The family of this 210-nucleotide sequence from Molossus molossus is "Small nucleolar RNA ZL1". On this family, see Kishore et al., Genome Biol 2013: "Insights into snoRNA biogenesis and processing from PAR-CLIP of snoRNA core proteins and small RNA sequencing". Rfam classes the family as a C/D-box small nucleolar RNA. Gene Ontology terms of the family: RNA processing and nucleolus. It scores 168 bits against the family's covariance model. The source organism's lineage runs through Eukaryota, Eumetazoa, Tetrapoda, Theria and Molossus. Host gene TRRAP. Predicted target U2@U47. Only GU-rich region is homologous to other known snoRNAs. Conserved in vertebrates.
RNA sequence: GGAGAAGCAAAGUGAUGAUCAAUACUGGCUGGAGUUCCGAAGAGGCACGCGCGCGCGCGCGUGUGUGUGUGUGUGUGUGUGUGUAUCUGUCCUUGUCUGUGCAUGCACAUGUAUGUCUGGGAGUAUGAAUGUCCAUGACUGAUUGUAGGGAACUAGUUAUGUGCCUUCUGUUGGACCAUGAUAGUCAAACUGAUAAGAUCUGAUUGCUUC
Numbered sequence: 001g002g003a004g005a006a007g008c009a010a011a012g013u014g015a016u017g018a019u020c021a022a023u024a025c026u027g028g029c030u031g032g033a034g035u036u037c038c039g040a041a042g043a044g045g046c047a048c049g050c051g052c053g054c055g056c057g058c059g060c061g062u063g064u065g066u067g068u069g070u071g072u073g074u075g076u077g078u079g080u081g082u083g084u085a086u087c088u089g090u091c092c093u094u095g096u097c098u099g100u101g102c103a104u105g106c107a108c109a110u111g112u113a114u115g116u117c118u119g120g121g122a123g124u125a126u127g128a129a130u131g132u133c134c135a136u137g138a139c140u141g142a143u144u145g146u147a148g149g150g151a152a153c154u155a156g157u158u159a160u161g162u163g164c165c166u167u168c169u170g171u172u173g174g175a176c177c178a179u180g181a182u183a184g185u186c187a188a189a190c191u192g193a194u195a196a197g198a199u200c201u202g203a204u205u206g207c208u209u210c
Base pairs, nucleotide, nucleotide: 004210005209006208007207008206009205010204014200015199016198026187027186028185029184030183031182036121037120038119039118041116043114045112046111047110049108051106052105053104055102056101061097065092067090068089069088123136124135139156140155141154143152144151158180159179160178161177163176165174166173